[Rfam]
Notes
This 48-nucleotide RNA sequence from Geococcyx californianus belongs to the Rfam family "MAT2A 3'UTR stem loop D". By type it is a cis-regulatory element.
RNA sequence: UCUGGGUUUUGGCAAAGGUACUUGCAGUUGUUUAGCCAACAACUCAGA
Numbered sequence: 001u002c003u004g005g006g007u008u009u010u011g012g013c014a015a016a017g018g019u020a021c022u023u024g025c026a027g028u029u030g031u032u033u034a035g036c037c038a039a040c041a042a043c044u045c046a047g048a
Base pairs, nucleotide, nucleotide: 001048002047003046004045005044006043007042008041009039010038011037012036013035